Shown here is a 296-nucleotide sequence from Pseudomonas sp. StFLB209, a member of the family "Pseudomonas sRNA P24". Rfam's curators write: This small RNA (sRNA) was computationally identified in the genome of the opportunistic pathogen Pseudomonas aeruginosa and its expression verified by Northern blot analysis. P24 is conserved across several Pseudomonas species and in Azotobacter vinelandii. It appears to be consistently located between a hypothetical protein gene and a transcriptional regulator gene (AsnC family) in the genomes of all these species. P24 has a predicted Rho independent terminator at the 3' end but the function of P24 is unknown. On this family, see Livny et al., Nucleic Acids Res 2006: "Identification of 17 Pseudomonas aeruginosa sRNAs and prediction of sRNA-encoding genes in 10 diverse pathogens using the bioinformatic tool sRNAPredict2".
RNA sequence: UUGCGCAAGUAAUGAUUUAUUGAGCAAUAUUAGCAAUCAUCUGCCGCGUGGUCGGGUUUAUUAUUUUUCACAGCUGGGCACUUCUAAAAACCUGAGUGAUUUUUAGAGCUGCUCCCAAUCACUGCCCGGACCCAGCGUCCACAGCCGCUCGUCGAAUCAGAUGAGCGGCGGCCCGCCACCCAACAGGGUGGACCCGGCCCCCGGGCUGCAUACUGUCCAGAAGACGGUAUGAAGUGAGCCGGCGCCACAAGCGUCGAGCCAGGACGACGUAUCCCAAGGGGGCCAUCUGGCCCCCU
Numbered sequence: 001u002u003g004c005g006c007a008a009g010u011a012a013u014g015a016u017u018u019a020u021u022g023a024g025c026a027a028u029a030u031u032a033g034c035a036a037u038c039a040u041c042u043g044c045c046g047c048g049u050g051g052u053c054g055g056g057u058u059u060a061u062u063a064u065u066u067u068u069c070a071c072a073g074c075u076g077g078g079c080a081c082u083u084c085u086a087a088a089a090a091c092c093u094g095a096g097u098g099a100u101u102u103u104u105a106g107a108g109c110u111g112c113u114c115c116c117a118a119u120c121a122c123u124g125c126c127c128g129g130a131c132c133c134a135g136c137g138u139c140c141a142c143a144g145c146c147g148c149u150c151g152u153c154g155a156a157u158c159a160g161a162u163g164a165g166c167g168g169c170g171g172c173c174c175g176c177c178a179c180c181c182a183a184c185a186g187g188g189u190g191g192a193c194c195c196g197g198c199c200c201c202c203g204g205g206c207u208g209c210a211u212a213c214u215g216u217c218c219a220g221a222a223g224a225c226g227g228u229a230u231g232a233a234g235u236g237a238g239c240c241g242g243c244g245c246c247a248c249a250a251g252c253g254u255c256g257a258g259c260c261a262g263g264a265c266g267a268c269g270u271a272u273c274c275c276a277a278g279g280g281g282g283c284c285a286u287c288u289g290g291c292c293c294c295c296u
Stems, first nucleotide, its partner, number of pairs: 001012004043100001045098002119237005124206004128140004144169005151162003170199004177190005209231003213227005238259002240256006277296008
Pairs were carried over by alignment from the consensus structure, which was predicted with RNAalifold.
A search with the family's covariance model found it, with a score of 212 bits.
The family's RNA type in Rfam is non-coding RNA gene.
NCBI's taxonomy places the organism under Bacteria, Pseudomonadota, Gammaproteobacteria, Pseudomonadaceae, Pseudomonas.